[Rfam]
RNA: Small nucleolar RNA SNORA31
RNA sequence: CUGCAUCCACUGAUAGACCUUGAACAGUCUGCUGUUGUUCUUUUGGUUUGCAAUAGGAUGCCAAAGGAAAAUCCCUGCGUUUCUGUCUGUCUUUGUGGCAGCCCAGAUUGAAUUGGGGGAUACAUUU
Numbered sequence: 001c002u003g004c005a006u007c008c009a010c011u012g013a014u015a016g017a018c019c020u021u022g023a024a025c026a027g028u029c030u031g032c033u034g035u036u037g038u039u040c041u042u043u044u045g046g047u048u049u050g051c052a053a054u055a056g057g058a059u060g061c062c063a064a065a066g067g068a069a070a071a072u073c074c075c076u077g078c079g080u081u082u083c084u085g086u087c088u089g090u091c092u093u094u095g096u097g098g099c100a101g102c103c104c105a106g107a108u109u110g111a112a113u114u115g116g117g118g119g120a121u122a123c124a125u126u127u
Stems, first nucleotide, its partner, number of pairs: 003061006011052002014050006022040007072119006082107004087101005